The family of this 35-nucleotide RNA sequence from Pipistrellus kuhlii is "Iron response element I".
Rfam 15.1 lists 6,829 matches to the family in 599 species.
For this family Rfam cites "An atypical iron-responsive element (IRE) within crayfish ferritin mRNA and an iron regulatory protein 1 (IRP1)-like protein from crayfish hepatopancreas" (Huang et al., Insect Biochem Mol Biol, 1999).
Its family is annotated with response to iron ion in the Gene Ontology.

[Rfam]
RNA sequence: CUGUCUCCUGUUUCAACAGUGUUUGGAUGAAACAG
Numbered sequence: 001c002u003g004u005c006u007c008c009u010g011u012u013u014c015a016a017c018a019g020u021g022u023u024u025g026g027a028u029g030a031a032a033c034a035g
Base pairs, nucleotide, nucleotide: 001035002034003033004032006031008029010028012027013026014025015024016023017021